RNA sequence: UAUCGUUUGACAUAUGCCUUUCGUAUAUCCUCGAAAAUAAGGUUCGAAAGUUUCUACCGGGUCACCGUAAAUGACUCGACUAUGAAGGCAGAAGAAGGUUUG
Numbered sequence: 001u002a003u004c005g006u007u008u009g010a011c012a013u014a015u016g017c018c019u020u021u022c023g024u025a026u027a028u029c030c031u032c033g034a035a036a037a038u039a040a041g042g043u044u045c046g047a048a049a050g051u052u053u054c055u056a057c058c059g060g061g062u063c064a065c066c067g068u069a070a071a072u073g074a075c076u077c078g079a080c081u082a083u084g085a086a087g088g089c090a091g092a093a094g095a096a097g098g099u100u101u102g
Base pairs, nucleotide, nucleotide: 018088019087020086021085022084023083024082025081031047032046033045034044035043058078059077060076061075062074063073064072
Description: Rfam assigns this 102-nucleotide RNA from Oceanobacillus oncorhynchi to the family "Purine riboswitch aptamer". NCBI's taxonomy places the organism under Bacteria, Bacilli, Caryophanales, Bacillaceae, Oceanobacillus. A search with the family's covariance model found it, with a score of 80 bits.